The family of this 167-nucleotide RNA from Dialister micraerophilus is "M-box riboswitch aptamer (ykoK leader)".
[Rfam]
RNA sequence: UAUCGGACUUGUUCGGUGAGGCUCCUAUAUAAACAUAGGCUGCUGCCCAAAAACGUCGAGAGACGCCAAUGGGUGUAACAGGAUUUGUCGAAAUAAGGCAUAUCUUAACGCAGCUAACUCAAUGUUUACGUUGUAUAGUGCUAAAACUCAGACGAUUGAGUACAUAG
Numbered sequence: 001u002a003u004c005g006g007a008c009u010u011g012u013u014c015g016g017u018g019a020g021g022c023u024c025c026u027a028u029a030u031a032a033a034c035a036u037a038g039g040c041u042g043c044u045g046c047c048c049a050a051a052a053a054c055g056u057c058g059a060g061a062g063a064c065g066c067c068a069a070u071g072g073g074u075g076u077a078a079c080a081g082g083a084u085u086u087g088u089c090g091a092a093a094u095a096a097g098g099c100a101u102a103u104c105u106u107a108a109c110g111c112a113g114c115u116a117a118c119u120c121a122a123u124g125u126u127u128a129c130g131u132u133g134u135a136u137a138g139u140g141c142u143a144a145a146a147c148u149c150a151g152a153c154g155a156u157u158g159a160g161u162a163c164a165u166a167g
Base pairs, nucleotide, nucleotide: 005163007161008160009159010158011153012152013096015148016147017146020142021141022140025138026137027136028135029134030133031132032131039114040113041112042111043110045074046073047072048071049070054065055064056063057062081105082104083103084102087099088098089097116126117125118124

Rfam's curators write: M-box riboswitch, also know as ykoK leader is described as a metaloregulatory RNA that sense divalent metals and function as a genetic control element of genes related to divalent metal transport in bacteria. The base pairs follow the family's consensus structure.